[Rfam]
A member of the RNA family "che1 RNA" from Streptomyces coryli, 91 nucleotides long.
RNA sequence: GGGGCAGGGGGGUCACCACCAGUAGGGCGGUGCCUGUCCUUUCCGGCCGCACGCCGUGCGGCCAGCGGUUGUCGCUCGGAGGUGAACGCCA
Numbered sequence: 001g002g003g004g005c006a007g008g009g010g011g012g013u014c015a016c017c018a019c020c021a022g023u024a025g026g027g028c029g030g031u032g033c034c035u036g037u038c039c040u041u042u043c044c045g046g047c048c049g050c051a052c053g054c055c056g057u058g059c060g061g062c063c064a065g066c067g068g069u070u071g072u073c074g075c076u077c078g079g080a081g082g083u084g085a086a087c088g089c090c091a
Base pairs, nucleotide, nucleotide: 001040002039003038004037005036006035007034008033014032015031016030017029019027020026045063046062047061048060049059050058051057052056
By type it is a small RNA. The family's consensus secondary structure is taken from published work.